Shown here is a 90-nucleotide sequence from Pantoea sp. Nvir, a member of the family "t44 RNA". Lineage of the source: Bacteria > Pseudomonadati > Enterobacterales > Erwiniaceae > Pantoea. A search with the family's covariance model found it, with a score of 84 bits. For this family Rfam cites "Transcriptome analysis of Escherichia coli using high-density oligonucleotide probe arrays" (Tjaden et al., Nucleic Acids Res, 2002). From the family's description: This family consists of a number of bacterial RNA genes of between 135 and 170 bases in length. The t44 gene has been identified in several species of enteric bacteria but homologs have also been identified in Pseudomonas and Coxiella species. The t44 gene is found between the map and rpsB genes in all species in the full alignment apart from Shigella flexneri.
RNA sequence: UGUACUAAAUAAACAACACACACAUGUAUCGACACAUACACCGGGGUGCUUCAAAAGAGGUCGGUUGUAUGGGAUACAUGGAGGCCCAAC
Numbered sequence: 001u002g003u004a005c006u007a008a009a010u011a012a013a014c015a016a017c018a019c020a021c022a023c024a025u026g027u028a029u030c031g032a033c034a035c036a037u038a039c040a041c042c043g044g045g046g047u048g049c050u051u052c053a054a055a056a057g058a059g060g061u062c063g064g065u066u067g068u069a070u071g072g073g074a075u076a077c078a079u080g081g082a083g084g085c086c087c088a089a090c
Stems, first nucleotide, its partner, number of pairs: 023080008035071005040065004048061005